[Rfam]
RNA sequence: UUUAUAUAAUUAAACUUGACUUAUAUAAGUUCAUAAUUGGUUGAACGUUUCUACCAACUACCGUAAUAGUUGAUUAUAAGUUAAUUCUUUUGAUGG
Numbered sequence: 001u002u003u004a005u006a007u008a009a010u011u012a013a014a015c016u017u018g019a020c021u022u023a024u025a026u027a028a029g030u031u032c033a034u035a036a037u038u039g040g041u042u043g044a045a046c047g048u049u050u051c052u053a054c055c056a057a058c059u060a061c062c063g064u065a066a067u068a069g070u071u072g073a074u075u076a077u078a079a080g081u082u083a084a085u086u087c088u089u090u091u092g093a094u095g096g
Stems, first nucleotide, its partner, number of pairs: 018082008029046004055072006

Overview:
Rfam assigns this 96-nucleotide sequence from Clostridium cavendishii to the family "Purine riboswitch aptamer". The family's consensus secondary structure is taken from published work. A search with the family's covariance model found it, with a score of 60 bits.